[Rfam]
RNA sequence: GAGUCUUGAUCGGGAGAGGGUUGCGAGCGAAUUCGCCAGCGCAGCCGCCGAAGGGGCACUACCCAAAAACUCUCAGGCAAAAGGACCGAUCAAGGGAC
Numbered sequence: 001g002a003g004u005c006u007u008g009a010u011c012g013g014g015a016g017a018g019g020g021u022u023g024c025g026a027g028c029g030a031a032u033u034c035g036c037c038a039g040c041g042c043a044g045c046c047g048c049c050g051a052a053g054g055g056g057c058a059c060u061a062c063c064c065a066a067a068a069a070c071u072c073u074c075a076g077g078c079a080a081a082a083g084g085a086c087c088g089a090u091c092a093a094g095g096g097a098c
Stems, first nucleotide, its partner, number of pairs: 006093008020045006047078003050074002054072003060065001

Overview: Shown here is a 98-nucleotide sequence from Rugamonas rivuli, a member of the family "Glycine riboswitch aptamer". A search with the family's covariance model found it, with a score of 62 bits. NCBI's taxonomy places the organism under Bacteria, Pseudomonadati, Betaproteobacteria, Burkholderiales, Rugamonas.